[Rfam]
RNA sequence: GUCUCUGAGGAUGAUGAAUUUACUUUCGUUCUUCCGAGUUUUCCAUGCGGAAAAUACAUGGAGACCUGAACUGAAGAGGC
Dot-bracket structure: ..((((....................................................................))))..
RNA: Small nucleolar RNA Z159/U59